RNA sequence: AGGCUAGCUUUAGCUCAGCGGUUCCUUCAAUCAAUCGUGCUUAGUCACUUGGGCCAGUGGCUUCCAUCGGUCCGGUGGUUCGAGACCCGUGGGCGCUCUCCAAUCCUUAA
Numbered sequence: 001a002g003g004c005u006a007g008c009u010u011u012a013g014c015u016c017a018g019c020g021g022u023u024c025c026u027u028c029a030a031u032c033a034a035u036c037g038u039g040c041u042u043a044g045u046c047a048c049u050u051g052g053g054c055c056a057g058u059g060g061c062u063u064c065c066a067u068c069g070g071u072c073c074g075g076u077g078g079u080u081c082g083a084g085a086c087c088c089g090u091g092g093g094c095g096c097u098c099u100c101c102a103a104u105c106c107u108u109a110a
Stems, first nucleotide, its partner, number of pairs: 002105002005102001007100001013094004018090004026084003030080001
Notes: This 110-nucleotide RNA from Cavia porcellus belongs to the Rfam family "Vault RNA". The match comes from Rfam's covariance-model search (55 bits). The family's consensus secondary structure is taken from published work.